[Rfam]
RNA: HNH endonuclease-associated RNA and ORF (HEARO) RNA
RNA sequence: GUCAGGAGCCUGGGAGUAGCAAACCCCACGGAUAAAUCCGGGGGCUUGUGAAUCAUUACCUGACCAGCCCAAGUCCCGUCAGGGACUACGUUAUCACCAAGAGUUGAAGUUCCUACCUUGAAAUGCGACGCUAGUUUCAAGCUCUAGAACCGGAUUGUUAAACAUCUUUAUCAGGUUAAGGAAGUGCAAUCUGGAAAGUACCGACUGAUAACAUUGGCGAAGCGAACUUUAC
Numbered sequence: 001g002u003c004a005g006g007a008g009c010c011u012g013g014g015a016g017u018a019g020c021a022a023a024c025c026c027c028a029c030g031g032a033u034a035a036a037u038c039c040g041g042g043g044g045c046u047u048g049u050g051a052a053u054c055a056u057u058a059c060c061u062g063a064c065c066a067g068c069c070c071a072a073g074u075c076c077c078g079u080c081a082g083g084g085a086c087u088a089c090g091u092u093a094u095c096a097c098c099a100a101g102a103g104u105u106g107a108a109g110u111u112c113c114u115a116c117c118u119u120g121a122a123a124u125g126c127g128a129c130g131c132u133a134g135u136u137u138c139a140a141g142c143u144c145u146a147g148a149a150c151c152g153g154a155u156u157g158u159u160a161a162a163c164a165u166c167u168u169u170a171u172c173a174g175g176u177u178a179a180g181g182a183a184g185u186g187c188a189a190u191c192u193g194g195a196a197a198g199u200a201c202c203g204a205c206u207g208a209u210a211a212c213a214u215u216g217g218c219g220a221a222g223c224g225a226a227c228u229u230u231a232c
Stems, first nucleotide, its partner, number of pairs: 001064006008057001067218003071214001072087005090212006102206005111148002117141008125228001129224004150194009162185002165182006